[Rfam]
RNA: ALIL pseudoknot
RNA sequence: GGCGUUUUUCGCCCGGGCGGAGCUCGACCGCCGACUCAAGUGAUCGUGUCGUUCAUCGACCGGCAUCGCCGUCGGUUCGGCGUGAGCCGAUCUGCGCCGUGCUCACCGAGCAUGGCUGCUCGAUCGCGCCG
Numbered sequence: 001g002g003c004g005u006u007u008u009u010c011g012c013c014c015g016g017g018c019g020g021a022g023c024u025c026g027a028c029c030g031c032c033g034a035c036u037c038a039a040g041u042g043a044u045c046g047u048g049u050c051g052u053u054c055a056u057c058g059a060c061c062g063g064c065a066u067c068g069c070c071g072u073c074g075g076u077u078c079g080g081c082g083u084g085a086g087c088c089g090a091u092c093u094g095c096g097c098c099g100u101g102c103u104c105a106c107c108g109a110g111c112a113u114g115g116c117u118g119c120u121c122g123a124u125c126g127c128g129c130c131g
Stems, first nucleotide, its partner, number of pairs: 016032005078131005088126002091123002